[Rfam]
RNA sequence: AUUAUUCUUUGACAACGAGAGAGAGCACGCUCGUCGGCAUUCAUGCAAAGGGCAUGACUGUCUACAUGCGUGCUCUCCCUCGUUGUCAUACAAUA
Numbered sequence: 001a002u003u004a005u006u007c008u009u010u011g012a013c014a015a016c017g018a019g020a021g022a023g024a025g026c027a028c029g030c031u032c033g034u035c036g037g038c039a040u041u042c043a044u045g046c047a048a049a050g051g052g053c054a055u056g057a058c059u060g061u062c063u064a065c066a067u068g069c070g071u072g073c074u075c076u077c078c079c080u081c082g083u084u085g086u087c088a089u090a091c092a093a094u095a
Stems, first nucleotide, its partner, number of pairs: 010088005016082002021077001023075001025073006033065002